[Rfam]
RNA sequence: CCUCUGGAAAGCGGGGACCCGCCGGUCCCCCGCCGACGGUGAAAGCGUCCCGCCCGGCGGGAGGCGAAUCUCUCAGGCUCCGAUGACAGAGG
Dot-bracket structure: ((((((......((((((......)))))).(((((..(.(...((.................))....).))).)))........))))))
Numbered sequence: 001c002c003u004c005u006g007g008a009a010a011g012c013g014g015g016g017a018c019c020c021g022c023c024g025g026u027c028c029c030c031c032g033c034c035g036a037c038g039g040u041g042a043a044a045g046c047g048u049c050c051c052g053c054c055c056g057g058c059g060g061g062a063g064g065c066g067a068a069u070c071u072c073u074c075a076g077g078c079u080c081c082g083a084u085g086a087c088a089g090a091g092g
Stems, first nucleotide, its partner, number of pairs: 001092006013030006032078003035074002039072001041070001045065002
The family of this 92-nucleotide sequence from Thermomonospora cellulosilytica is "Glycine riboswitch aptamer". Taxonomically the source falls in Thermomonospora (Bacteria, Actinomycetota, Streptosporangiales, Thermomonosporaceae). Rfam links the family to the GO term glycine biosynthetic process. About the family: This family represents the bacterial glycine riboswitch. Glycine riboswitches usually consist of two metabolite-binding aptamers domains with similar structures in tandem. The aptamers cooperatively bind glycine to regulate the expression of downstream genes.